[Rfam]
Nucleotides: 102
Base pairs, nucleotide, nucleotide: 001102002101003100004099005098006097007096008095013044014043015042016041017040021033022032023031030076045071046070047069048068050067051066052063053062054061080091081090082089083088
Number, partner (000 for none) and nucleotide at each position: 001102c002101u003100c004099u005098u006097a007096u008095u009000c010000a011000g012000a013044g014043c015042a016041g017040u018000g019000g020000a021033g022032a023031u024000a025000c026000a027000a028000a029000g030076g031023a032022u033021c034000u035000a036000a037000g038000a039000a040017g041016c042015u043014g044013c045071g046070g047069c048068a049000a050067c051066c052063c053062c054061u055000c056000g057000u058000a059000a060000u061054a062053g063052g064000a065000a066051g067050g068048u069047g070046c071045c072000a073000a074000c075000c076030u077000g078000a079000g080091c081090g082089a083088g084000u085000u086000a087000u088083u089082u090081c091080g092000a093000a094000c095008a096007a097006u098005a099004a100003g101002a102001g